[Rfam]
RNA: Plant signal recognition particle RNA
RNA sequence: GCCGAGCUCAGUAACGUGGGCUUGUAACCCAAGUGGGGGCAUUAAUGUGGUGGAAUAUUGGGCCUGUUCAGAUGGCAGGGUUUGGGUGGCUAAUUUCUGGCCUGCCCUAUCCAAGCUCAGAGUUGGGUCAUGUGGCCCAAACGAAGGUAUGGGCCCGCUUGGCUCCUAAAGUGGAGUGGACCGCGUGAGGCUGGUUUCACAGAACAACGAAUAGCUCCCGCUCUGUGCAGUGGAAGGAUAACGGGUCGAUGUCAUCUAAGCCCAAUAAAUGCCUGAUGGGCUGCUCUAAUUAAACCACCACUUUU
Dot-bracket structure: ((((((((((......)))))))....(((....))))))...((.(((((((..((((((((....(((...((((((((((((.(((.((.....(((((((.((..((((.((.((((((.((((((.((((((((.((....)).))))).))).))))))(....).(((((......(((....(((......)))....)))....))))).)))))).))..)))).))....))))))).))))).))))))))......))))...)))...))).))).))..))))))).)).
Numbered sequence: 001g002c003c004g005a006g007c008u009c010a011g012u013a014a015c016g017u018g019g020g021c022u023u024g025u026a027a028c029c030c031a032a033g034u035g036g037g038g039g040c041a042u043u044a045a046u047g048u049g050g051u052g053g054a055a056u057a058u059u060g061g062g063c064c065u066g067u068u069c070a071g072a073u074g075g076c077a078g079g080g081u082u083u084g085g086g087u088g089g090c091u092a093a094u095u096u097c098u099g100g101c102c103u104g105c106c107c108u109a110u111c112c113a114a115g116c117u118c119a120g121a122g123u124u125g126g127g128u129c130a131u132g133u134g135g136c137c138c139a140a141a142c143g144a145a146g147g148u149a150u151g152g153g154c155c156c157g158c159u160u161g162g163c164u165c166c167u168a169a170a171g172u173g174g175a176g177u178g179g180a181c182c183g184c185g186u187g188a189g190g191c192u193g194g195u196u197u198c199a200c201a202g203a204a205c206a207a208c209g210a211a212u213a214g215c216u217c218c219c220g221c222u223c224u225g226u227g228c229a230g231u232g233g234a235a236g237g238a239u240a241a242c243g244g245g246u247c248g249a250u251g252u253c254a255u256c257u258a259a260g261c262c263c264a265a266u267a268a269a270u271g272c273c274u275g276a277u278g279g280g281c282u283g284c285u286c287u288a289a290u291u292a293a294a295c296c297a298c299c300a301c302u303u304u305u
Stems, first nucleotide, its partner, number of pairs: 001040003004023007028037003044304002047301007056292002058289003061285003068279003074273004078263008087254003091251002098248007106237002110234004115228002118225006125165006132158003135154005141148002166171001173218005184209003191202003